[Rfam]
RNA sequence: CAAAAAGAUGGUAAUGGAGCUUACCUCGCCAGAGCGAUGAUGCUGGCGGAACCGCAUACACUUGCAUGCUAAUGGCUCCUGAUGACGC
Number, nucleotide and partner (000 for none) at each position: 001c000002a000003a000004a000005a000006a000007g000008a000009u000010g025011g024012u023013a022014a000015u000016g079017g078018a077019g076020c075021u074022u013023a012024c011025c010026u000027c000028g000029c000030c000031a000032g000033a000034g000035c000036g000037a000038u000039g000040a000041u000042g000043c000044u000045g000046g000047c000048g000049g000050a000051a000052c000053c000054g069055c068056a067057u066058a000059c000060a000061c000062u000063u000064g000065c000066a057067u056068g055069c054070u000071a000072a000073u000074g021075g020076c019077u018078c017079c016080u000081g000082a000083u000084g000085a000086c000087g000088c000
This 88-nucleotide RNA from Reticulibacter mediterranei belongs to the Rfam family "Fluoride riboswitch aptamer (crcB RNA motif)". The family's consensus secondary structure is taken from published work. It scores 37 bits against the family's covariance model.